[Rfam]
RNA sequence: GCCUCGAUGAGAUCGUCUGGUGGCGGUUGCGGACUUCAAAUCCGUAGAGGUGUUACAGCCUAGUAGUUCGAUUCUACCUUUGGGGC
Numbered sequence: 001g002c003c004u005c006g007a008u009g010a011g012a013u014c015g016u017c018u019g020g021u022g023g024c025g026g027u028u029g030c031g032g033a034c035u036u037c038a039a040a041u042c043c044g045u046a047g048a049g050g051u052g053u054u055a056c057a058g059c060c061u062a063g064u065a066g067u068u069c070g071a072u073u074c075u076a077c078c079u080u081u082g083g084g085g086c
Stems, first nucleotide, its partner, number of pairs: 001086007009078001012027006028046006048061004063077004
RNA: Selenocysteine transfer RNA